[Rfam]
RNA sequence: AAAACGCACCAGGGGUGCCUGUAUCUGCCAUUUAGCUCUUUGGCAGAAUGAGGCUGAGAAAGUCCCUUUGAACCUGAACAGGAUAAUUCCUGCGUAGGGAGUGUGCAUUUUUGUUGCU
Dot-bracket structure: .....((((.((((.(((((..............................))))......)..)))).....((((..((((......))))..))))....))))............
RNA: TPP riboswitch aptamer (THI element)